[Rfam]
RNA sequence: GGCAGUAGCUGGCCGGCUAAGUUCGGCACGUCCUGUGCCAACGCCGGCACUAGUACGUCCUGUACG
Number, nucleotide and partner (000 for none) at each position: 001g000002g000003c000004a000005g000006u000007a000008g000009c000010u000011g000012g048013c047014c046015g045016g044017c043018u000019a000020a000021g000022u000023u000024c000025g039026g038027c037028a036029c035030g000031u000032c000033c000034u000035g029036u028037g027038c026039c025040a000041a000042c000043g017044c016045c015046g014047g013048c012049a000050c000051u000052a000053g065054u064055a063056c062057g000058u000059c000060c000061u000062g056063u055064a054065c053066g000
Shown here is a 66-nucleotide RNA sequence from Lentibacillus salicampi, a member of the family "Bacillaceae-1 RNA". Rfam classes the family as a small RNA. The base pairs follow the family's consensus structure, which is taken from published work. NCBI's taxonomy places the organism under Bacteria, Bacillati, Bacillota, Caryophanales, Lentibacillus. Rfam 15.1 lists 5,721 matches to the family in 247 species. It scores 57 bits against the family's covariance model.